[Rfam]
RNA sequence: UGGCCGCAGAUGCUCUGACGAGAUUGCACUACUUUGCUUUAAGAAGCAGUGCAAUGAUAUUGUCAAAGCAUCUGGGACCAGC
Number, nucleotide and partner (000 for none) at each position: 001u000002g079003g078004c000005c000006g000007c074008a073009g072010a071011u070012g069013c068014u067015c000016u065017g064018a063019c062020g000021a000022g000023a055024u054025u053026g052027c051028a050029c049030u048031a000032c000033u000034u000035u000036g000037c000038u000039u000040u000041a000042a000043g000044a000045a000046g000047c000048a030049g029050u028051g027052c026053a025054a024055u023056g000057a000058u000059a000060u000061u000062g019063u018064c017065a016066a000067a014068g013069c012070a011071u010072c009073u008074g007075g000076g000077a000078c003079c002080a000081g000082c000
A member of the RNA family "mir-301 microRNA precursor family" from Rousettus aegyptiacus, 82 nucleotides long. The family's consensus secondary structure was predicted with WAR. For this family Rfam cites "Embryonic stem cell-specific MicroRNAs" (Houbaviy et al., Dev Cell, 2003).